[Rfam]
RNA sequence: CCUAACUUUACAACGGAGGAUGGGAAUGAUGGAGCCAUGUUUCCUGAAACCAUCCCGUCAAUACUCCUGCAUGCGUCAUGACUGACAGGUCAUGGGGUCUGAAGUACAGGUAGAUUCGGCAGAACGGAGGCUGAAGCCAUUCUGAAAAGAAAAGGUAUGCCAACGGAUAUGCCGCACGGCUGCAAA
Numbered sequence: 001c002c003u004a005a006c007u008u009u010a011c012a013a014c015g016g017a018g019g020a021u022g023g024g025a026a027u028g029a030u031g032g033a034g035c036c037a038u039g040u041u042u043c044c045u046g047a048a049a050c051c052a053u054c055c056c057g058u059c060a061a062u063a064c065u066c067c068u069g070c071a072u073g074c075g076u077c078a079u080g081a082c083u084g085a086c087a088g089g090u091c092a093u094g095g096g097g098u099c100u101g102a103a104g105u106a107c108a109g110g111u112a113g114a115u116u117c118g119g120c121a122g123a124a125c126g127g128a129g130g131c132u133g134a135a136g137c138c139a140u141u142c143u144g145a146a147a148a149g150a151a152a153a154g155g156u157a158u159g160c161c162a163a164c165g166g167a168u169a170u171g172c173c174g175c176a177c178g179g180c181u182g183c184a185a186a
Stems, first nucleotide, its partner, number of pairs: 018055006031045002034042001056178003066110004070101002073098002076095008117174005125165002129161002131149002138144001151156001
Group II catalytic intron D1-D4-5: a 186-nucleotide RNA from Filibacter tadaridae. The family has 139 seed sequences and 720 matches in Rfam 15.1. Rfam links the family to the GO term Group II intron splicing. A reference for the family is Bonen and Vogel (2001), "The ins and outs of group II introns", Trends Genet. Pairs were carried over by alignment from the consensus structure. Rfam describes the family as follows. Group II introns are found in rRNA, tRNA and mRNA of organelles in fungi, plants and protists, and also in mRNA in bacteria.